Shown here is an 88-nucleotide RNA sequence, a member of the family "c-di-GMP-II-GAG riboswitch aptamer". The sequence is in the family's curated seed alignment. The family's consensus secondary structure is taken from published work. Gene Ontology terms of the family: cyclic-di-GMP binding and regulation of gene expression. The literature on the family includes a 2017 paper in Proc Natl Acad Sci U S A by Weinberg et al., "Bioinformatic analysis of riboswitch structures uncovers variant classes with altered ligand specificity". Its Rfam clan is "c-di-GMP_II riboswitch clan".

RNA sequence: UGGCGGGUAGUGGCUAGGAACCUCGUCUCCAAAUGGUGGGCACCCGAAGGGGCGAGGGGAGCCAGUGGUGCGACCGCCCACCGCGUGG
Dot-bracket structure: ((...(((.(.(((......((((((((.........[[[[[[[.....))))))))...)))...]]]]]..]]..).)))...)).